[Rfam]
Shown here is a 118-nucleotide sequence from Actinobacteria bacterium OK074, a member of the family "ZMP/ZTP riboswitch aptamer (pfl RNA motif)". Rfam 15.1 lists 3,295 matches to the family in 2,545 species.

RNA sequence: GCCACGGGCCGUGACUGGCGCGCUGGGUCUCCCACCAGGGGAUCCGAAGAUGGACGACCAUCGGGGAGCGGCCCGCAGUACUUACUGAGAACGUGUGCCGUGCGCCUGGGCCGAACCG
Dot-bracket structure: ....((((((((..(([[[[[............................((((....))))..))..)))))))).....................(((..]]]]]..))).......